[Rfam]
RNA sequence: UUUGAGCGGUAGCCUAAUUCAAAUUCAUGAAAACUGAGUUUGAAGCGGAGGAACCAUGUAUUUGGGGCAAAUCUUAAUUGAGAGACACCUUCCAGUCUUAGCCCGUCAGCUAACUCCGUCGGCAAUGGAAGGAACCUCC
Numbered sequence: 001u002u003u004g005a006g007c008g009g010u011a012g013c014c015u016a017a018u019u020c021a022a023a024u025u026c027a028u029g030a031a032a033a034c035u036g037a038g039u040u041u042g043a044a045g046c047g048g049a050g051g052a053a054c055c056a057u058g059u060a061u062u063u064g065g066g067g068c069a070a071a072u073c074u075u076a077a078u079u080g081a082g083a084g085a086c087a088c089c090u091u092c093c094a095g096u097c098u099u100a101g102c103c104c105g106u107c108a109g110c111u112a113a114c115u116c117c118g119u120c121g122g123c124a125a126u127g128g129a130a131g132g133a134a135c136c137u138c139c
Stems, first nucleotide, its partner, number of pairs: 012123003018044010045119006055064002065104003073082003083098004
Annotation: The family of this 139-nucleotide RNA from Cylindrospermopsis raciborskii is "c-di-AMP riboswitch aptamer (ydaO/yuaA leader)". For this family Rfam cites "New RNA motifs suggest an expanded scope for riboswitches in bacterial genetic control" (Barrick et al., Proc Natl Acad Sci U S A, 2004). The match comes from Rfam's covariance-model search (64 bits).